[Rfam]
A member of the RNA family "Plastid-psbA-1 3UTR RNA" from Dasiphora fruticosa, 118 nucleotides long. It is one of the family's seed sequences. A reference for the family is Richter et al. (2023), "Retrograde signaling in plants: A critical review focusing on the GUN pathway and beyond", Plant Commun. Lineage of the source: Eukaryota > Magnoliopsida > Rosaceae > Rosoideae > Dasiphora. The family's consensus secondary structure was predicted with LocARNA.

RNA sequence: AAUUUUAAUCUAAAAAAAAAUAGUACUAAAAUACUAAUUAAAUUAUUAAAUUUAAAUUAUAGUAAAGGAGCAAUACGAAAUCUCUUGUUAUAUCAAGAGAUUUCGUAUUGCUCCUUUA
Number, nucleotide and partner (000 for none) at each position: 001a000002a000003u000004u000005u020006u019007a000008a000009u016010c000011u000012a000013a000014a000015a000016a009017a000018a000019a006020a005021u000022a000023g000024u000025a000026c000027u000028a000029a000030a000031a000032u000033a000034c000035u000036a000037a000038u000039u000040a000041a000042a000043u000044u000045a000046u000047u000048a000049a000050a000051u000052u000053u000054a000055a000056a000057u000058u000059a000060u000061a000062g000063u000064a117065a116066a115067g114068g113069a112070g111071c110072a109073a108074u107075a106076c105077g000078a103079a102080a101081u000082c099083u098084c097085u096086u095087g000088u000089u000090a000091u000092a000093u000094c000095a086096a085097g084098a083099g082100a000101u080102u079103u078104c000105g076106u075107a074108u073109u072110g071111c070112u069113c068114c067115u066116u065117u064118a000